[Rfam]
RNA sequence: UGCCCGGGCCGUGACUGGCGCAUCGCAGGUGGACGACCACCGGGGAGCGGCCCCGUCGACCCGACGUCCGCCGCGCGCCUGGGCUCCCGUU
Numbered sequence: 001u002g003c004c005c006g007g008g009c010c011g012u013g014a015c016u017g018g019c020g021c022a023u024c025g026c027a028g029g030u031g032g033a034c035g036a037c038c039a040c041c042g043g044g045g046a047g048c049g050g051c052c053c054c055g056u057c058g059a060c061c062c063g064a065c066g067u068c069c070g071c072c073g074c075g076c077g078c079c080u081g082g083g084c085u086c087c088c089g090u091u
Base pairs, nucleotide, nucleotide: 004055006053007052008051009050010049011048012047015044016043017079018078019077020076021075029040030039031038032037070084071083072082

A member of the RNA family "ZMP/ZTP riboswitch aptamer (pfl RNA motif)" from Modestobacter versicolor, 91 nucleotides long. The source organism's lineage runs through Bacteria, Actinomycetota, Actinomycetes, Geodermatophilaceae and Modestobacter. Gene Ontology terms of the family: one-carbon metabolic process and regulation of purine nucleotide biosynthetic process.